[Rfam]
RNA sequence: CGCAACAGGGGACGCAAGGAUCCUCGAGCCGCAGUAAGCGGUCGCCGGGUCGGCCCGACAGGGGCUGACGGGCUCGGGGGGAGCGAGUGGCGAGACCGACCCCGAGGACC
Numbered sequence: 001c002g003c004a005a006c007a008g009g010g011g012a013c014g015c016a017a018g019g020a021u022c023c024u025c026g027a028g029c030c031g032c033a034g035u036a037a038g039c040g041g042u043c044g045c046c047g048g049g050u051c052g053g054c055c056c057g058a059c060a061g062g063g064g065c066u067g068a069c070g071g072g073c074u075c076g077g078g079g080g081g082a083g084c085g086a087g088u089g090g091c092g093a094g095a096c097c098g099a100c101c102c103c104g105a106g107g108a109c110c
Stems, first nucleotide, its partner, number of pairs: 002110001006106001008103004013085003022079008040097002042093005